A member of the RNA family "FMN riboswitch aptamer (RFN element)" from Bombella intestini, 152 nucleotides long. Taxonomically the source falls in Bombella (Bacteria, Pseudomonadota, Alphaproteobacteria, Acetobacteraceae).
RNA sequence: AGACGUUCUCGGGGCAGGGUGAAACUCCCUACCGGCGGUGUUGGUGGCUUUGGCUGCCUUAGCCCGCGAGCGCCCUGCAUUCGUGCAGGGGACAAGCAGAUCCGGUGUAAUUCCGGGGCCGACGGUUACAGUCCGGAUGAGAGAGAACGUUC
Numbered sequence: 001a002g003a004c005g006u007u008c009u010c011g012g013g014g015c016a017g018g019g020u021g022a023a024a025c026u027c028c029c030u031a032c033c034g035g036c037g038g039u040g041u042u043g044g045u046g047g048c049u050u051u052g053g054c055u056g057c058c059u060u061a062g063c064c065c066g067c068g069a070g071c072g073c074c075c076u077g078c079a080u081u082c083g084u085g086c087a088g089g090g091g092a093c094a095a096g097c098a099g100a101u102c103c104g105g106u107g108u109a110a111u112u113c114c115g116g117g118g119c120c121g122a123c124g125g126u127u128a129c130a131g132u133c134c135g136g137a138u139g140a141g142a143g144a145g146a147a148c149g150u151u152c
Base pairs, nucleotide, nucleotide: 003150004149005148006147007146008145009144010143017029018028019027031132032131033121034120035067036066037065038064062119063118070097071096101117102116103115104114105113123135124134125133
Dot-bracket structure: ..((((((((......(((.......))).[[((((((.......................[[))))..((........................))...(((((.......)))))]])).(((.....]]))).......))))))))..